[Rfam]
Shown here is a 290-nucleotide RNA from Bacillus licheniformis, a member of the family "SurA sRNA". Rfam classes the family as a small RNA. The organism belongs to Bacillus licheniformis, within Bacteria. The base pairs follow the family's consensus structure, which was predicted with mfold.
RNA sequence: CUUCAGGCACUGGAGCAAUCGGUGGAGUAGGGAUACUUUGGCCGGUUUCAUCUACUCCGCCUCUAAAUCCAACAAAUCAGCAAAUCUCAUCCUUUUCACCCUGGUCAUUGCCUUUAUCAUCUCCUUUGUAAAUUUUUUGUUAAAUUCACAAUAUUAUAUACAAUUAGCCCGGUCGCUGUUCUAUGCAUGUCAUGAUCUUUUUAACAAAAAACACCUCCCGAUCACCGGGAAGUGUUUUUCGUGCUUGAAUUAAAAAUGGAGACCCCCCUCUUAGGGAAUCUCCAUUUUUU
Numbered sequence: 001c002u003u004c005a006g007g008c009a010c011u012g013g014a015g016c017a018a019u020c021g022g023u024g025g026a027g028u029a030g031g032g033a034u035a036c037u038u039u040g041g042c043c044g045g046u047u048u049c050a051u052c053u054a055c056u057c058c059g060c061c062u063c064u065a066a067a068u069c070c071a072a073c074a075a076a077u078c079a080g081c082a083a084a085u086c087u088c089a090u091c092c093u094u095u096u097c098a099c100c101c102u103g104g105u106c107a108u109u110g111c112c113u114u115u116a117u118c119a120u121c122u123c124c125u126u127u128g129u130a131a132a133u134u135u136u137u138u139g140u141u142a143a144a145u146u147c148a149c150a151a152u153a154u155u156a157u158a159u160a161c162a163a164u165u166a167g168c169c170c171g172g173u174c175g176c177u178g179u180u181c182u183a184u185g186c187a188u189g190u191c192a193u194g195a196u197c198u199u200u201u202u203a204a205c206a207a208a209a210a211a212c213a214c215c216u217c218c219c220g221a222u223c224a225c226c227g228g229g230a231a232g233u234g235u236u237u238u239u240c241g242u243g244c245u246u247g248a249a250u251u252a253a254a255a256a257u258g259g260a261g262a263c264c265c266c267c268c269u270c271u272u273a274g275g276g277a278a279u280c281u282c283c284a285u286u287u288u289u290u
Stems, first nucleotide, its partner, number of pairs: 007233002010228004015168002021061007029053003032049002035046003076141001078139003082135001104123001107120002110117001171215002175212001177210001182206001187202001189200001253288010265276003